RNA sequence: GUUGAUAUGUGUGACUGGCGUAGCCGUGGAGAGAACCACGAGGAAGCACAUAUUUCAUAUGCCGUACGCCUGGGCAAAGCGU
Numbered sequence: 001g002u003u004g005a006u007a008u009g010u011g012u013g014a015c016u017g018g019c020g021u022a023g024c025c026g027u028g029g030a031g032a033g034a035a036c037c038a039c040g041a042g043g044a045a046g047c048a049c050a051u052a053u054u055u056c057a058u059a060u061g062c063c064g065u066a067c068g069c070c071u072g073g074g075c076a077a078a079g080c081g082u
Stems, first nucleotide, its partner, number of pairs: 004054009015043002017070005026039004060076004
The record is an 82-nucleotide sequence from Paenibacillus whitsoniae, which matches "ZMP/ZTP riboswitch aptamer (pfl RNA motif)" in Rfam. Lineage of the source: Bacteria > Bacilli > Caryophanales > Paenibacillaceae > Paenibacillus.